[Rfam]
RNA sequence: CUCUUAUUCAGAGUGGUGGAGGUACAAAGGACCUGCGAAGCCACGGCAACCCCGGUAAGCCGGAAGGUGCCAACCUGAGCGAGCAAUCGAACAAUAAGAG
Numbered sequence: 001c002u003c004u005u006a007u008u009c010a011g012a013g014u015g016g017u018g019g020a021g022g023u024a025c026a027a028a029g030g031a032c033c034u035g036c037g038a039a040g041c042c043a044c045g046g047c048a049a050c051c052c053c054g055g056u057a058a059g060c061c062g063g064a065a066g067g068u069g070c071c072a073a074c075c076u077g078a079g080c081g082a083g084c085a086a087u088c089g090a091a092c093a094a095u096a097a098g099a100g
Base pairs, nucleotide, nucleotide: 001100002099003098004097005096006095007094008093013044014043015042016041017040021033022032023031030076045071046070047069048068050067051066052063053062054061055060080089081088082087
Dot-bracket structure: ((((((((....(((((...(((......[)))......)))))((((.((((((....))))..))))))....]...(((....)))...))))))))

The family of this 100-nucleotide RNA sequence from Allocoprococcus comes is "SAM riboswitch aptamer (S box leader)". Pairs were carried over by alignment from the consensus structure, which is taken from published work. Rfam's curators put it in the seed alignment.